The record is a 106-nucleotide sequence from Peribacillus cavernae, which matches "SAM riboswitch aptamer (S box leader)" in Rfam. The match comes from Rfam's covariance-model search (46 bits). About the family: The SAM riboswitch is found upstream of a number of genes which code for proteins involved in methionine or cysteine biosynthesis in Gram-positive bacteria. The base pairs follow the family's consensus structure, which is taken from published work. Gene Ontology term of the family: regulation of gene expression.
RNA sequence: UAGUUAUCAAGAGUGAAUAAGAGAUCUGGCUCCAUGACUUACUUCACAGCAGCCUCCAUCGAAAAGGUGCUUCUGCAAGCAAAGCGCUUGCUUUGGUUGAUAAGAU
Number, nucleotide and partner (000 for none) at each position: 001u000002a000003g000004u103005u102006a101007u100008c099009a000010a000011g000012a000013g047014u046015g045016a044017a043018u000019a000020a000021g032022a031023g030024a000025u000026c079027u078028g000029g076030c023031u022032c021033c000034a000035u000036g000037a000038c000039u000040u000041a000042c000043u017044u016045c015046a014047c013048a071049g070050c069051a068052g000053c067054c066055u063056c000057c061058a000059u000060c000061g057062a000063a055064a000065a000066g054067g053068u051069g050070c049071u048072u000073c000074u000075g098076c029077a000078a027079g026080c095081a094082a093083a092084g091085c090086g000087c000088u000089u000090g085091c084092u083093u082094u081095g080096g000097u000098u075099g008100a007101u006102a005103a004104g000105a000106u000